[Rfam]
RNA sequence: UAACUUGGUGUAACACGCCUUACCGAGACUAAACAGCGUGUCUAAAAAACAGUCUCUCAUACCUCAGGCGGAGGGUGUCUGAGGAAUAAUCUAACUU
Numbered sequence: 001u002a003a004c005u006u007g008g009u010g011u012a013a014c015a016c017g018c019c020u021u022a023c024c025g026a027g028a029c030u031a032a033a034c035a036g037c038g039u040g041u042c043u044a045a046a047a048a049a050c051a052g053u054c055u056c057u058c059a060u061a062c063c064u065c066a067g068g069c070g071g072a073g074g075g076u077g078u079c080u081g082a083g084g085a086a087u088a089a090u091c092u093a094a095c096u097u
Base pairs, nucleotide, nucleotide: 014040015039016038017037018036021035025056026055027054028053029052063083064082065081066080067079068078069077